[Rfam]
RNA sequence: UCCUGACAGCCUUGUUAAGAGGUUGACACUAGCCACGACAGGAGACUCACAUG
Numbered sequence: 001u002c003c004u005g006a007c008a009g010c011c012u013u014g015u016u017a018a019g020a021g022g023u024u025g026a027c028a029c030u031a032g033c034c035a036c037g038a039c040a041g042g043a044g045a046c047u048c049a050c051a052u053g
Stems, first nucleotide, its partner, number of pairs: 002042004007025005

A member of the RNA family "Mu-gpT-DE RNA", 53 nucleotides long.
The base pairs follow the family's consensus structure, which is taken from published work.
By type it is a small RNA.